Annotation: Rfam assigns this 71-nucleotide sequence from Mycobacterium sinensis to the family "Actino-pnp RNA". Rfam classes the family as a cis-regulatory element. Pairs were carried over by alignment from the consensus structure, which is taken from published work. Taxonomically the source falls in Mycobacterium (subgen. Mycolicibacter) (Bacteria, Bacillati, Mycobacteriales, Mycobacteriaceae). It scores 60 bits against the family's covariance model.
[Rfam]
RNA sequence: GGCGGUCUUCGGUAGUGGCAGCCGGGUCUGAACGUUCGUGCAGGAUCCGGCCGCUUCGAUCGACGACCGUA
Number, nucleotide and partner (000 for none) at each position: 001g000002g070003c069004g068005g067006u066007c065008u000009u063010c062011g061012g060013u059014a000015g000016u000017g055018g054019c053020a000021g051022c050023c049024g048025g047026g046027u045028c044029u043030g000031a000032a000033c000034g000035u000036u000037c000038g000039u000040g000041c000042a000043g029044g028045a027046u026047c025048c024049g023050g022051c021052c000053g019054c018055u017056u000057c000058g000059a013060u012061c011062g010063a009064c000065g007066a006067c005068c004069g003070u002071a000